[Rfam]
RNA: Plastid-psbA-3 3UTR RNA
RNA sequence: AAAGUAGCAAUACCCCAUGUCUUGCUUUAUCAAGACAUGGUGUAUUGCUACUUUGUUG
Number, nucleotide and partner (000 for none) at each position: 001a054002a053003a052004g051005u050006a049007g048008c047009a046010a045011u044012a043013c042014c040015c000016c000017a000018u000019g036020u035021c034022u033023u032024g031025c000026u000027u000028u000029a000030u000031c024032a023033a022034g021035a020036c019037a000038u000039g000040g014041u000042g013043u012044a011045u010046u009047g008048c007049u006050a005051c004052u003053u002054u001055g000056u000057u000058g000